A member of the RNA family "ALIL pseudoknot" from Caldimonas brevitalea, 117 nucleotides long. For this family Rfam cites "Apical loop-internal loop RNA pseudoknots: a new type of stimulator of -1 translational frameshifting in bacteria" (Mazauric et al., J Biol Chem, 2008). By type it is a cis-regulatory element.

[Rfam]
RNA sequence: CGCGUUUUUCGCCCAGGCGGAGCUCGACCGCCGCACCAAGUCCUGAAGGCUUUCGUCGAUCAGCAUCGAACGCAGUUUGGGGUCGAGCCGAUCUGUCGCGUCCUGCAGAUCGCCCCC
Numbered sequence: 001c002g003c004g005u006u007u008u009u010c011g012c013c014c015a016g017g018c019g020g021a022g023c024u025c026g027a028c029c030g031c032c033g034c035a036c037c038a039a040g041u042c043c044u045g046a047a048g049g050c051u052u053u054c055g056u057c058g059a060u061c062a063g064c065a066u067c068g069a070a071c072g073c074a075g076u077u078u079g080g081g082g083u084c085g086a087g088c089c090g091a092u093c094u095g096u097c098g099c100g101u102c103c104u105g106c107a108g109a110u111c112g113c114c115c116c117c
Base pairs, nucleotide, nucleotide: 016032017031018030019029020028079116080115081114082113089112090111092109093108094107095106096105098103